[Rfam]
Nucleotides: 095
Stems, first nucleotide, its partner, number of pairs: 007082004011045004016039001017031005051076004057070004
Number, partner (000 for none) and nucleotide at each position: 001000u002000c003000c004000a005000a006000u007082u008081a009080g010079u011045c012044g013043g014042g015000g016039u017031g018030c019029u020028g021027c022000u023000u024000u025000g026000g027021g028020c029019g030018g031017c032000u033000g034000a035000g036000a037000g038000g039016a040000u041000a042014c043013c044012c045011g046000u047000u048000g049000u050000a051076c052075c053074u054073g055000a056000u057070c058069c059068g060067g061000u062000u063000a064000g065000c066000a067060c068059c069058g070057g071000c072000g073054u074053a075052g076051g077000g078000a079010a080009c081008u082007a083000u084000c085000a086000g087000g088000c089000a090000g091000a092000g093000g094000a095000a
Shown here is a 95-nucleotide RNA from Eikenella corrodens, a member of the family "TPP riboswitch aptamer (THI element)". Pairs were carried over by alignment from the consensus structure, which is taken from published work.